[Rfam]
RNA sequence: UCGGCUCUUUUUGCGGUCUGGGCUUGCUGUUCCUCGCGGCAGCCGUCAGGAAGCCCUUACCCCAAAAAGUAUCCG
Numbered sequence: 001u002c003g004g005c006u007c008u009u010u011u012u013g014c015g016g017u018c019u020g021g022g023c024u025u026g027c028u029g030u031u032c033c034u035c036g037c038g039g040c041a042g043c044c045g046u047c048a049g050g051a052a053g054c055c056c057u058u059a060c061c062c063c064a065a066a067a068a069g070u071a072u073c074c075g
Base pairs, nucleotide, nucleotide: 007069008068009067010066011065012064013063015061016060017059020056021055022054023053025051027049028048

Source information: mir-129 microRNA precursor family: a 75-nucleotide RNA sequence from Geococcyx californianus. Gene Ontology terms of the family: gene silencing by miRNA, miRNA-mediated post-transcriptional gene silencing and synapse. The organism belongs to Geococcyx, within Eukaryota.